[Rfam]
RNA: SAH (S-adenosyl-L-homocysteine) riboswitch aptamer
Organism: Bordetella genomosp. 5
RNA sequence: AUCCCUGAGGAGCGCUGCGACGAACCGCCGGUGAGUGCCAUGCACCCGCCGCGCCAGGAUCGCCAGGCUCAGGAAUCCUUGUUCAGUCGGAUCGCAUCGCGGUCUGGCAGCAGCAACGGCGCUCACCUUUG
Numbered sequence: 001a002u003c004c005c006u007g008a009g010g011a012g013c014g015c016u017g018c019g020a021c022g023a024a025c026c027g028c029c030g031g032u033g034a035g036u037g038c039c040a041u042g043c044a045c046c047c048g049c050c051g052c053g054c055c056a057g058g059a060u061c062g063c064c065a066g067g068c069u070c071a072g073g074a075a076u077c078c079u080u081g082u083u084c085a086g087u088c089g090g091a092u093c094g095c096a097u098c099g100c101g102g103u104c105u106g107g108c109a110g111c112a113g114c115a116a117c118g119g120c121g122c123u124c125a126c127c128u129u130u131g
Stems, first nucleotide, its partner, number of pairs: 002075001004073005021062003025058002